The family of this 388-nucleotide part of an RNA from Bacteroides finegoldii is "Bacterial large subunit ribosomal RNA".
The match comes from Rfam's covariance-model search (2767 bits).
The source organism's lineage runs through Bacteria, Pseudomonadati, Bacteroidota, Bacteroidaceae and Bacteroides.
[Rfam]
RNA sequence: GAUAAAGGGGGUGAGAAACCCCCUCGCCGAAAGACUAAGGUUUCCUGAUCAACGCUAAUCGGAUCAGGGUUAGUCGGGUCCUAAGGCUCAGCCGAACGGUGAUGCCGAUGGCAGAACAGGUUAAUAUUCCUGUACUACCUUAAGGAGUGACGUGGAGACGGAGUCGUGACAGCGCCGCGGACUGACGGAAUAGUCCGUUGAAGGGUGUAGAUGUUGAUCUUUGCAGGCAAAUCCACAAAGAGAGUCGAACCUGAUAGUAUACCAAUUCCUUCGGGAAACGGUAAUAGUGCGUGUAAACAUACUCCCGAGAAAAUCCGCUAAACUUAAUCCUUUAGGUACCCGUACCGCAAACGGACACACGUAGUCGGGUUGAAUAUACUAAGGCGCU
Numbered sequence: 001g002a003u004a005a006a007g008g009g010g011g012u013g014a015g016a017a018a019c020c021c022c023c024u025c026g027c028c029g030a031a032a033g034a035c036u037a038a039g040g041u042u043u044c045c046u047g048a049u050c051a052a053c054g055c056u057a058a059u060c061g062g063a064u065c066a067g068g069g070u071u072a073g074u075c076g077g078g079u080c081c082u083a084a085g086g087c088u089c090a091g092c093c094g095a096a097c098g099g100u101g102a103u104g105c106c107g108a109u110g111g112c113a114g115a116a117c118a119g120g121u122u123a124a125u126a127u128u129c130c131u132g133u134a135c136u137a138c139c140u141u142a143a144g145g146a147g148u149g150a151c152g153u154g155g156a157g158a159c160g161g162a163g164u165c166g167u168g169a170c171a172g173c174g175c176c177g178c179g180g181a182c183u184g185a186c187g188g189a190a191u192a193g194u195c196c197g198u199u200g201a202a203g204g205g206u207g208u209a210g211a212u213g214u215u216g217a218u219c220u221u222u223g224c225a226g227g228c229a230a231a232u233c234c235a236c237a238a239a240g241a242g243a244g245u246c247g248a249a250c251c252u253g254a255u256a257g258u259a260u261a262c263c264a265a266u267u268c269c270u271u272c273g274g275g276a277a278a279c280g281g282u283a284a285u286a287g288u289g290c291g292u293g294u295a296a297a298c299a300u301a302c303u304c305c306c307g308a309g310a311a312a313a314u315c316c317g318c319u320a321a322a323c324u325u326a327a328u329c330c331u332u333u334a335g336g337u338a339c340c341c342g343u344a345c346c347g348c349a350a351a352c353g354g355a356c357a358c359a360c361g362u363a364g365u366c367g368g369g370u371u372g373a374a375u376a377u378a379c380u381a382a383g384g385c386g387c388u
Stems, first nucleotide, its partner, number of pairs: 006024006025386004033366004039346002044068006053061002075342004080111002085106003091100003116133005136338005142332005147323002152318005160305004166298002172292004177198006199257001203252004210246003218241006226234002259285002266277004352361002368380003